[Rfam]
RNA sequence: UUUGUCAGGGGAGACGCAGACCCGGGCCGAGCUUCACUCGGUCACCGUUCGACGGCCCGGUGAGUCAGUGGUGAGACCGCCCCCACCCA
Numbered sequence: 001u002u003u004g005u006c007a008g009g010g011g012a013g014a015c016g017c018a019g020a021c022c023c024g025g026g027c028c029g030a031g032c033u034u035c036a037c038u039c040g041g042u043c044a045c046c047g048u049u050c051g052a053c054g055g056c057c058c059g060g061u062g063a064g065u066c067a068g069u070g071g072u073g074a075g076a077c078c079g080c081c082c083c084c085a086c087c088c089a
Stems, first nucleotide, its partner, number of pairs: 003089002008084004013066003022060008040078002042074005
Record summary
c-di-GMP-II-GAG riboswitch aptamer: an 89-nucleotide sequence from Paractinoplanes globisporus. The family is grouped with related families in Rfam's "c-di-GMP_II riboswitch clan". The base pairs follow the family's consensus structure, which is taken from published work. The literature on the family includes a 2017 paper in Proc Natl Acad Sci U S A by Weinberg et al., "Bioinformatic analysis of riboswitch structures uncovers variant classes with altered ligand specificity".